[Rfam]
Nucleotides: 058
Base pairs, nucleotide, nucleotide: 001022002021003020004019005018006017007016008015009014029057030056032055033054034053035052037050038049
Number, partner (000 for none) and nucleotide at each position: 001022c002021g003020g004019c005018g006017g007016c008015u009014c010000g011000c012000c013000u014009g015008a016007g017006c018005c019004g020003c021002c022001g023000g024000c025000c026000c027000a028000c029057c030056u031000a032055c033054c034053c035052g036000a037050g038049u039000a040000c041000c042000u043000g044000a045000c046000a047000c048000g049038g050037c051000c052035c053034g054033g055032g056030a057029g058000a